[Rfam]
Rfam assigns this 92-nucleotide RNA sequence from Streptococcus suis to the family "Bacterial small signal recognition particle RNA".
By type it is a non-coding RNA gene.
The family's consensus secondary structure is taken from published work.
The signal recognition particle (SRP) is a universally conserved ribonucleoprotein involved in the co-translational targeting of proteins to membranes.
RNA sequence: UAUUAAAUGGAGCAACAUUCGUGCGUGAAGCGGGUCAGGGGAGGAAUCCAGCAGCCCUAAGCGAGGUCGAGUGUGUGCUCUUUUUGCGUAUA
Numbered sequence: 001u002a003u004u005a006a007a008u009g010g011a012g013c014a015a016c017a018u019u020c021g022u023g024c025g026u027g028a029a030g031c032g033g034g035u036c037a038g039g040g041g042a043g044g045a046a047u048c049c050a051g052c053a054g055c056c057c058u059a060a061g062c063g064a065g066g067u068c069g070a071g072u073g074u075g076u077g078c079u080c081u082u083u084u085u086g087c088g089u090a091u092a
Base pairs, nucleotide, nucleotide: 001090002089003088007083009081010080011079012078013075015074016073017072018071019070020069022065024063025062026061032057033056034055035054040049041048042047